[Rfam]
RNA sequence: AAAACGCUGCGAGUUUGCUUACGCAAACGUCGCUUUAUUGAUUGCACUUUUUCAUUUCAUUGCAAAAGUGCGGCAAUUCGCCAAUCCUCGCCUUUUGAUAAAGGCUGCGGUUGUCGAAUUUUAAG
Number, nucleotide and partner (000 for none) at each position: 001a000002a000003a000004a000005c000006g000007c000008u000009g000010c000011g031012a030013g028014u027015u026016u025017g024018c023019u000020u000021a000022c000023g018024c017025a016026a015027a014028c013029g000030u012031c011032g000033c000034u000035u000036u000037a000038u000039u000040g000041a000042u000043u000044g071045c070046a069047c068048u067049u066050u065051u064052u000053c000054a000055u000056u000057u000058c000059a000060u000061u000062g000063c000064a051065a050066a049067a048068g047069u046070g045071c044072g000073g000074c000075a000076a119077u118078u117079c116080g115081c000082c113083a112084a111085u000086c110087c109088u000089c000090g105091c104092c103093u102094u101095u100096u000097g000098a000099u000100a095101a094102a093103g092104g091105c090106u000107g000108c000109g087110g086111u084112u083113g082114u000115c080116g079117a078118a077119u076120u000121u000122u000123a000124a000125g000
TD-1 RNA: a 125-nucleotide RNA from Treponema denticola. The family is grouped with related families in Rfam's "TD (Treponema denticola) motifs". The source organism's lineage runs through Bacteria, Pseudomonadati, Spirochaetota, Treponema and Treponema denticola. Pairs were carried over by alignment from the consensus structure, which is taken from published work. It is annotated as a cis-regulatory element. A reference for the family is Weinberg et al. (2007), "Identification of 22 candidate structured RNAs in bacteria using the CMfinder comparative genomics pipeline", Nucleic Acids Res.